[Rfam]
RNA sequence: AACGCUCUCUAGGGGGUCAUUGUAGAAACGUGCUCGUCGCAACCCCUGCCAGCCCUCUUCAGGGCUGCAAUUCUACA
Numbered sequence: 001a002a003c004g005c006u007c008u009c010u011a012g013g014g015g016g017u018c019a020u021u022g023u024a025g026a027a028a029c030g031u032g033c034u035c036g037u038c039g040c041a042a043c044c045c046c047u048g049c050c051a052g053c054c055c056u057c058u059u060c061a062g063g064g065c066u067g068c069a070a071u072u073c074u075a076c077a
Stems, first nucleotide, its partner, number of pairs: 013046005021077007029039002050067007
RNA: Mammalian CPEB3 ribozyme